Shown here is a 74-nucleotide sequence from Scleropages formosus, a member of the family "mir-23 microRNA precursor family".
RNA sequence: GGCUGGAGGGAUUCCUGGCAGAGUGAUUUGGGUUAAUGUCAUAAAAUCACAUUGCCAGGGAUUUCCAACCAGCU
Number, nucleotide and partner (000 for none) at each position: 001g074002g073003c000004u071005g070006g069007a000008g000009g066010g065011a062012u061013u060014c059015c058016u057017g056018g055019c054020a053021g052022a000023g050024u049025g048026a047027u046028u045029u044030g000031g000032g000033u000034u000035a000036a000037u000038g000039u000040c000041a000042u000043a000044a029045a028046a027047u026048c025049a024050c023051a000052u021053u020054g019055c018056c017057a016058g015059g014060g013061a012062u011063u000064u000065c010066c009067a000068a000069c006070c005071a004072g000073c002074u001
A reference for the family is Chen et al. (2005), "The developmental miRNA profiles of zebrafish as determined by small RNA cloning", Genes Dev.
The organism belongs to Scleropages, within Eukaryota.